[Rfam]
RNA sequence: AAGUUUAGGCAACUCAUACCGAAGACAGCAGGUGCAAUCAGCUUAAUUUCCUGCCGAGGCUAAUGUCAUAAAAUUUUAAUUUCUCUUACUAUACGAUACACAGCAGUGGUAAGUAGAAAUUAUAAGGCAUGACCUCUGGCAAACAGCUAGAGGUCUUUUUUAUUGGUGUA
Number, nucleotide and partner (000 for none) at each position: 001a000002a000003g000004u000005u000006u000007a000008g000009g000010c000011a000012a000013c000014u000015c000016a000017u000018a000019c000020c000021g000022a000023a000024g000025a000026c000027a000028g054029c053030a052031g051032g050033u000034g042035c041036a000037a000038u000039c000040a000041g035042c034043u000044u000045a000046a000047u000048u000049u000050c032051c031052u030053g029054c028055c000056g000057a000058g000059g000060c000061u000062a000063a000064u000065g000066u000067c000068a000069u000070a000071a000072a000073a000074u000075u000076u000077u000078a000079a000080u000081u000082u000083c000084u000085c000086u000087u000088a000089c000090u000091a000092u000093a000094c000095g000096a000097u000098a000099c000100a000101c000102a000103g000104c000105a000106g000107u000108g000109g000110u000111a000112a000113g000114u000115a000116g000117a000118a000119a000120u000121u000122a000123u000124a000125a000126g000127g000128c000129a000130u000131g155132a154133c153134c152135u151136c150137u149138g148139g147140c146141a000142a000143a000144c000145a000146g140147c139148u138149a137150g136151a135152g134153g133154u132155c131156u000157u000158u000159u000160u000161u000162a000163u000164u000165g000166g000167u000168g000169u000170a000
Shown here is a 170-nucleotide sequence from Hyella patelloides, a member of the family "Ribosomal protein L10 leader". The organism belongs to Hyella patelloides, within Bacteria. Its family is annotated with regulation of gene expression in the Gene Ontology. This family is a putative r-protein leader autoregulatory structure found in B. subtilis and other low-GC Gram-positive bacteria. It is located in the 5' untranslated regions of mRNAs encoding ribosomal proteins L10 and L12 (rplJ-rplL). A Rho-independent transcription terminator structure that is probably involved in regulation is included at the 3' end. The family's RNA type in Rfam is cis-regulatory leader.